Shown here is a 45-nucleotide sequence, a member of the family "L31-Actinobacteria ribosomal protein leader". The family's RNA type in Rfam is cis-regulatory leader. The sequence is in the family's curated seed alignment. The base pairs follow the family's consensus structure, which is taken from published work.
RNA sequence: GCGGUACCGGUUCACGCCCUGCUGGCGCGGGGCGACCCGGCGACC
Numbered sequence: 001g002c003g004g005u006a007c008c009g010g011u012u013c014a015c016g017c018c019c020u021g022c023u024g025g026c027g028c029g030g031g032g033c034g035a036c037c038c039g040g041c042g043a044c045c
Stems, first nucleotide, its partner, number of pairs: 003045003007040004015034008